[Rfam]
RNA sequence: CCCAGACCGUUGGCCUGGGCUGUGAUAUUUCGCCCCUUCGGGGCU
Numbered sequence: 001c002c003c004a005g006a007c008c009g010u011u012g013g014c015c016u017g018g019g020c021u022g023u024g025a026u027a028u029u030u031c032g033c034c035c036c037u038u039c040g041g042g043g044c045u
Base pairs, nucleotide, nucleotide: 001019002018003017004016005015032044033043034042035041036040